[Rfam]
Source information: Shown here is an 85-nucleotide RNA from Pelomonas sp. HMWF004, a member of the family "Group II catalytic intron D1-D4-1". About the family: Group II introns are found in rRNA, tRNA and mRNA of organelles in fungi, plants and protists, and also in mRNA in bacteria. The match comes from Rfam's covariance-model search (68 bits). The source organism's lineage runs through Bacteria, Betaproteobacteria, Burkholderiales, Sphaerotilaceae and Roseateles.
RNA sequence: CGCGGCGCGCGGCAACGCGCGUCGUGACGAUGCAGAAGUCAGCAGACGCCGUAGUAGGUGGCCAGGUGUCGGGCCGCUGAAGGGC
Numbered sequence: 001c002g003c004g005g006c007g008c009g010c011g012g013c014a015a016c017g018c019g020c021g022u023c024g025u026g027a028c029g030a031u032g033c034a035g036a037a038g039u040c041a042g043c044a045g046a047c048g049c050c051g052u053a054g055u056a057g058g059u060g061g062c063c064a065g066g067u068g069u070c071g072g073g074c075c076g077c078u079g080a081a082g083g084g085c
Base pairs, nucleotide, nucleotide: 001026002025004023005022006021007020008019009018010017011016038047039046040045048085049084050083057078058077059076060075061074062073